RNA sequence: AGGCUGCAUAUGAUGACAACAUAGUUCAGCAGAUAAGCUGUGAUGAUCACACUGCUAUUGUCUUUCGCUCCUAUCUGAUGCAGUCU
Numbered sequence: 001a002g003g004c005u006g007c008a009u010a011u012g013a014u015g016a017c018a019a020c021a022u023a024g025u026u027c028a029g030c031a032g033a034u035a036a037g038c039u040g041u042g043a044u045g046a047u048c049a050c051a052c053u054g055c056u057a058u059u060g061u062c063u064u065u066c067g068c069u070c071c072u073a074u075c076u077g078a079u080g081c082a083g084u085c086u
Stems, first nucleotide, its partner, number of pairs: 004083005